[Rfam]
RNA sequence: UUGAACAAGUAGGAGCACCCGCUUCUCGCCUCGUGACGAUUGUUGUUGCUAGGCAGAUACACGUUGUACUUAAUUGUACAGUCAGGUAAAGUGGGUGGACUUCGGUUCACUCACUUUUUUCUUCGU
Numbered sequence: 001u002u003g004a005a006c007a008a009g010u011a012g013g014a015g016c017a018c019c020c021g022c023u024u025c026u027c028g029c030c031u032c033g034u035g036a037c038g039a040u041u042g043u044u045g046u047u048g049c050u051a052g053g054c055a056g057a058u059a060c061a062c063g064u065u066g067u068a069c070u071u072a073a074u075u076g077u078a079c080a081g082u083c084a085g086g087u088a089a090a091g092u093g094g095g096u097g098g099a100c101u102u103c104g105g106u107u108c109a110c111u112c113a114c115u116u117u118u119u120u121c122u123u124c125g126u
Base pairs, nucleotide, nucleotide: 011026012025013024014023015022016021028054029053030052033049034048035047036046037045090115091114092113093112094111095110096109097108098107099106
Record summary
This 126-nucleotide RNA sequence from Fructobacillus pseudoficulneus belongs to the Rfam family "Ribosomal protein L20 leader". Rfam describes the family as follows. This family is a putative r-protein leader autoregulatory structure found in B. subtilis and other low-GC Gram-positive bacteria. It is located in the 5' untranslated regions of mRNAs encoding initiation factor 3 followed by ribosomal proteins L35 and L20 (infC-rpmI-rplT). A Rho-independent transcription terminator structure that is probably involved in regulation is included at the 3' end. Gene Ontology term of the family: regulation of gene expression. By type it is a cis-regulatory leader. The literature on the family includes a 1994 paper in Prog Nucleic Acid Res Mol Biol by Zengel and Lindahl, "Diverse mechanisms for regulating ribosomal protein synthesis in Escherichia coli".